[Rfam]
RNA sequence: CCCGCGGCCAGACGGAAAGACCCCGUGCACCUUUACUACAGCUUUGCAUUGAACUCUGAUCCUACUUGUGUAGGAUAGCUGGGAGGCUUUGAAACUUGAACGCUAGUUUGAGUGGAGCCAAUCUUGAAAUACCAGCCUGGUAUGGUUGGGGUUCUAACUUAGGUCCAUUAUCUGGAUCGAGGACAAUGCAUGGUGGGUAGUUUGACUGGGGCGGUCUCCUCCUAAAGAGUAACGGAGGAGCGCAAAGGUACCCUCAGCACGGUCGGACAUCGUGCAAUGAGCGCAAAGGUAAAAGGGUGCUUGACUGCGAGACUGACACGUCGAGCAGGUAGGAAACUAGGUCUUAGUGAUCCGGUGGUUCUGAGUGGAAGGACCAUCGCUCAACGGAUAAAAGGUACGCCGGGGAUAACAGGCUGAUACCGCCCAAGAGUUCACAUCGACGGCGGUGUUUGGCACCUCGAUGUCGGCUCAUCACAUCCUGGGGCUGAAGCAGGUCCCAAGGGUAUGGCUGUUCGCCAUUUAAAGUGGUACGCGAGCUGGGUUUAGAACGUCGUGAGACAGUUCGGUCCCUAUCUACCGUGGGCGUU
Numbered sequence: 001c002c003c004g005c006g007g008c009c010a011g012a013c014g015g016a017a018a019g020a021c022c023c024c025g026u027g028c029a030c031c032u033u034u035a036c037u038a039c040a041g042c043u044u045u046g047c048a049u050u051g052a053a054c055u056c057u058g059a060u061c062c063u064a065c066u067u068g069u070g071u072a073g074g075a076u077a078g079c080u081g082g083g084a085g086g087c088u089u090u091g092a093a094a095c096u097u098g099a100a101c102g103c104u105a106g107u108u109u110g111a112g113u114g115g116a117g118c119c120a121a122u123c124u125u126g127a128a129a130u131a132c133c134a135g136c137c138u139g140g141u142a143u144g145g146u147u148g149g150g151g152u153u154c155u156a157a158c159u160u161a162g163g164u165c166c167a168u169u170a171u172c173u174g175g176a177u178c179g180a181g182g183a184c185a186a187u188g189c190a191u192g193g194u195g196g197g198u199a200g201u202u203u204g205a206c207u208g209g210g211g212c213g214g215u216c217u218c219c220u221c222c223u224a225a226a227g228a229g230u231a232a233c234g235g236a237g238g239a240g241c242g243c244a245a246a247g248g249u250a251c252c253c254u255c256a257g258c259a260c261g262g263u264c265g266g267a268c269a270u271c272g273u274g275c276a277a278u279g280a281g282c283g284c285a286a287a288g289g290u291a292a293a294a295g296g297g298u299g300c301u302u303g304a305c306u307g308c309g310a311g312a313c314u315g316a317c318a319c320g321u322c323g324a325g326c327a328g329g330u331a332g333g334a335a336a337c338u339a340g341g342u343c344u345u346a347g348u349g350a351u352c353c354g355g356u357g358g359u360u361c362u363g364a365g366u367g368g369a370a371g372g373a374c375c376a377u378c379g380c381u382c383a384a385c386g387g388a389u390a391a392a393a394g395g396u397a398c399g400c401c402g403g404g405g406a407u408a409a410c411a412g413g414c415u416g417a418u419a420c421c422g423c424c425c426a427a428g429a430g431u432u433c434a435c436a437u438c439g440a441c442g443g444c445g446g447u448g449u450u451u452g453g454c455a456c457c458u459c460g461a462u463g464u465c466g467g468c469u470c471a472u473c474a475c476a477u478c479c480u481g482g483g484g485c486u487g488a489a490g491c492a493g494g495u496c497c498c499a500a501g502g503g504u505a506u507g508g509c510u511g512u513u514c515g516c517c518a519u520u521u522a523a524a525g526u527g528g529u530a531c532g533c534g535a536g537c538u539g540g541g542u543u544u545a546g547a548a549c550g551u552c553g554u555g556a557g558a559c560a561g562u563u564c565g566g567u568c569c570c571u572a573u574c575u576a577c578c579g580u581g582g583g584c585g586u587u
Stems, first nucleotide, its partner, number of pairs: 001583007010575003014570002022404004027400002029396005035201004042193002045190004051154011063142004068137001078136005085119003094113008158181003162178006204216004217239006240385001242342002248300006254280002257275006281290002305328004311322003330339003353379007361372002413454003417451001418448007428438002465540001466538004470532001471529005478503002481498006505519005546564004550559003
Dot-bracket structure: (((((((..(((.((......((((.(((((((.((((...((.((((..(((((((((((.((((.(.........(((((..(((......((((((((....))))))))...)))............)))))).)))).)))))))))))...(((.((((((.....))))))))).....)))).))....))))..((((.....))))((((((...........))))))(.((....((((((((.((((((.......))))))...))((......))....))))))....((((..(((......)))..)))).(((....))).))..........(((((((.((........))))))))).....)......)))))..))))))........(((.((((((((...((.......))...)))))))..))))..........(((((((((((..((.((((((......))))))...)).(((((.....))))).....)))))..)..)))).).....(((((((....))).))))....))..))).)))))))....
This 587-nucleotide part of an RNA from a Bathymodiolus septemdierum thioautotrophic gill symbiont belongs to the Rfam family "Bacterial large subunit ribosomal RNA". Pairs were carried over by alignment from the consensus structure, which is taken from published work. It scores 2876 bits against the family's covariance model. The organism belongs to Bathymodiolus septemdierum thioautotrophic gill symbiont, within Bacteria.